A member of the RNA family "Small nucleolar RNA Z221/R21b" from Striga asiatica, 86 nucleotides long.
RNA sequence: GGGCUGUGAUGAGAAUUAUAGAGAAUGUCAUGCACCACUCUGAAUAUUGUGAUGAUAUAUUCUCAUACCCAUAAAAUUCUGAGCCU
Numbered sequence: 001g002g003g004c005u006g007u008g009a010u011g012a013g014a015a016u017u018a019u020a021g022a023g024a025a026u027g028u029c030a031u032g033c034a035c036c037a038c039u040c041u042g043a044a045u046a047u048u049g050u051g052a053u054g055a056u057a058u059a060u061u062c063u064c065a066u067a068c069c070c071a072u073a074a075a076a077u078u079c080u081g082a083g084c085c086u
Stems, first nucleotide, its partner, number of pairs: 001086004
Rfam classes the family as a C/D-box small nucleolar RNA. The base pairs follow the family's consensus structure, which was predicted with WAR. Gene Ontology terms of the family: nucleolus and RNA processing. Rfam 15.1 lists 588 matches to the family in 222 species.